[Rfam]
The family of this 92-nucleotide RNA sequence from Ruminococcus sp. CAG:382 is "Glycine riboswitch aptamer".
RNA sequence: CGAUAGCACUCCGGAGAAGUCCGCAAAGGAUGCCGAAGGGGUAAAGCGCGAAACCGCGCCAAUCUCUCAGGCAAAAGGACGGAGAAUACACA
Numbered sequence: 001c002g003a004u005a006g007c008a009c010u011c012c013g014g015a016g017a018a019g020u021c022c023g024c025a026a027a028g029g030a031u032g033c034c035g036a037a038g039g040g041g042u043a044a045a046g047c048g049c050g051a052a053a054c055c056g057c058g059c060c061a062a063u064c065u066c067u068c069a070g071g072c073a074a075a076a077g078g079a080c081g082g083a084g085a086a087u088a089c090a091c092a
Stems, first nucleotide, its partner, number of pairs: 006087001009084005020030003032072003035068002039066003046059002